[Rfam]
RNA sequence: GUUCCAUCAGGGCACACCCGAACGAAAGUCGGGGUCGCAAAGCCUCCGGUCUACCAUCCACGCCUCGGCGCGGAUCACGAUAGCGGGGUUGCCAGA
Numbered sequence: 001g002u003u004c005c006a007u008c009a010g011g012g013c014a015c016a017c018c019c020g021a022a023c024g025a026a027a028g029u030c031g032g033g034g035u036c037g038c039a040a041a042g043c044c045u046c047c048g049g050u051c052u053a054c055c056a057u058c059c060a061c062g063c064c065u066c067g068g069c070g071c072g073g074a075u076c077a078c079g080a081u082a083g084c085g086g087g088g089u090u091g092c093c094a095g096a
Base pairs, nucleotide, nucleotide: 012038013037017033018032019031020030022029023028041090042089043088044087046086047085048084049081050080051079056075057074058073059072
RNA: c-di-GMP-I riboswitch aptamer
Organism: Roseateles sp. DAIF2